[Rfam]
RNA sequence: CAACAAACGAAAGGAGGUGAUCCAGUGUCUCAUUGUCAUCAGCCGCGGUCGUCGGCUCACCGGACCUGGACCGUCGCCUCCGGCGCUUUCGUCUAAGCGCUCGGGUCGCGCGAGACAGGUCCGGCCGGACCGCGGUUCGGCAAUGGAAGGGCCGCCCCUCACGGGGCGGCCCU
Numbered sequence: 001c002a003a004c005a006a007a008c009g010a011a012a013g014g015a016g017g018u019g020a021u022c023c024a025g026u027g028u029c030u031c032a033u034u035g036u037c038a039u040c041a042g043c044c045g046c047g048g049u050c051g052u053c054g055g056c057u058c059a060c061c062g063g064a065c066c067u068g069g070a071c072c073g074u075c076g077c078c079u080c081c082g083g084c085g086c087u088u089u090c091g092u093c094u095a096a097g098c099g100c101u102c103g104g105g106u107c108g109c110g111c112g113a114g115a116c117a118g119g120u121c122c123g124g125c126c127g128g129a130c131c132g133c134g135g136u137u138c139g140g141c142a143a144u145g146g147a148a149g150g151g152c153c154g155c156c157c158c159u160c161a162c163g164g165g166g167c168g169g170c171c172c173u
Base pairs, nucleotide, nucleotide: 016023017022031145032144033143034142035141036140037139044069047066048065049064050063070074075110076109077108078105080104081103082102085098086097087096088095148173149172150171151170152169153168154167155166156165157164158163